The record is an 88-nucleotide sequence from Oryza nivara, which matches "MIR1861 microRNA precursor family" in Rfam. A search with the family's covariance model found it, with a score of 90 bits. Rfam 15.1 lists 210 matches to the family in 9 species.
[Rfam]
RNA sequence: AUAUUCAUAGGCCCGGUCUUGUGGUAAGAACUGUGUAGUUCAUUAACUCGCUACACGGUUCUUGCCACAAGACCGAGUUUGUGAAUAU
Numbered sequence: 001a002u003a004u005u006c007a008u009a010g011g012c013c014c015g016g017u018c019u020u021g022u023g024g025u026a027a028g029a030a031c032u033g034u035g036u037a038g039u040u041c042a043u044u045a046a047c048u049c050g051c052u053a054c055a056c057g058g059u060u061c062u063u064g065c066c067a068c069a070a071g072a073c074c075g076a077g078u079u080u081g082u083g084a085a086u087a088u
Stems, first nucleotide, its partner, number of pairs: 001088006008081005014075008023066011035054002